[Rfam]
RNA sequence: AAUAGUUUAAUGCCACAUCAACAUUUUCAUCGUAAAUUUCAAGAUUUUCAUCAUGAAAAAAAAUCAAAUCUAAAUGGAAAUCUUGAAACUCAGUAUAAAAUUGUUGAUGUGGCAUUAAACUAUU
Numbered sequence: 001a002a003u004a005g006u007u008u009a010a011u012g013c014c015a016c017a018u019c020a021a022c023a024u025u026u027u028c029a030u031c032g033u034a035a036a037u038u039u040c041a042a043g044a045u046u047u048u049c050a051u052c053a054u055g056a057a058a059a060a061a062a063a064u065c066a067a068a069u070c071u072a073a074a075u076g077g078a079a080a081u082c083u084u085g086a087a088a089c090u091c092a093g094u095a096u097a098a099a100a101u102u103g104u105u106g107a108u109g110u111g112g113c114a115u116u117a118a119a120c121u122a123u124u
Stems, first nucleotide, its partner, number of pairs: 001124022023101002026099002029096002033092001035090001037088003041084002045080004
RNA: MIR7504 microRNA precursor family